[Rfam]
RNA sequence: UGGACACGCGAAACAAGUGCAGUUCAACACGGCUGACGCCGGUACCUGAUACGGCCGGCGCAG
Number, nucleotide and partner (000 for none) at each position: 001u026002g025003g024004a023005c022006a000007c000008g000009c000010g000011a000012a000013a000014c000015a000016a000017g000018u000019g000020c000021a000022g005023u004024u003025c002026a001027a000028c000029a000030c000031g000032g000033c063034u062035g061036a000037c060038g059039c058040c057041g056042g055043u054044a000045c000046c000047u000048g000049a000050u000051a000052c000053g000054g043055c042056c041057g040058g039059c038060g037061c035062a034063g033
RNA: L17-Actino-Proteobacteria ribosomal protein leader